[Rfam]
Rfam assigns this 109-nucleotide RNA sequence from Syntrophothermus lipocalidus to the family "SAM riboswitch aptamer (S box leader)". Rfam describes the family as follows. The SAM riboswitch is found upstream of a number of genes which code for proteins involved in methionine or cysteine biosynthesis in Gram-positive bacteria. NCBI's taxonomy places the organism under Bacteria, Bacillota, Clostridia, Eubacteriales, Syntrophothermus lipocalidus. Gene Ontology term of the family: regulation of gene expression.
RNA sequence: CUCUUAUCGAGAGAGGUGGAGGGACGGGCCCUAUGAAACCCGGCAACCGCCUUGGUUAUCCGAGGUAUGGUGCCAAUUCCUGCAGGAUGUGAUUCCUGGGAGAUAAGAG
Numbered sequence: 001c002u003c004u005u006a007u008c009g010a011g012a013g014a015g016g017u018g019g020a021g022g023g024a025c026g027g028g029c030c031c032u033a034u035g036a037a038a039c040c041c042g043g044c045a046a047c048c049g050c051c052u053u054g055g056u057u058a059u060c061c062g063a064g065g066u067a068u069g070g071u072g073c074c075a076a077u078u079c080c081u082g083c084a085g086g087a088u089g090u091g092a093u094u095c096c097u098g099g100g101a102g103a104u105a106a107g108a109g
Stems, first nucleotide, its partner, number of pairs: 001109008013041001015040003021031003025082004042074004047070002049066004078101001083098005